[Rfam]
RNA sequence: AUAAGCUUUAAGAUAGUCCAGAGAGGCUAACAAGAUACUGUAAAUAUAAUAAGGGAUUACUUUAUGUUGAUUACUAGUUGUCUAGUCUUUUUGGAUUAGGCAACUAUUUUU
Dot-bracket structure: ...(.(((.....(((((......)))))..))).).....((.((..((((((.....))))))..)).))..((((((((((((((....)))))))))))))).....
A member of the RNA family "PyrR binding site" from Anaeroplasma bactoclasticum, 111 nucleotides long. Taxonomically the source falls in Anaeroplasma (Bacteria, Mycoplasmatota, Anaeroplasmatales, Anaeroplasmataceae). The family's consensus secondary structure is taken from published work. The family's RNA type in Rfam is cis-regulatory element. It scores 59 bits against the family's covariance model.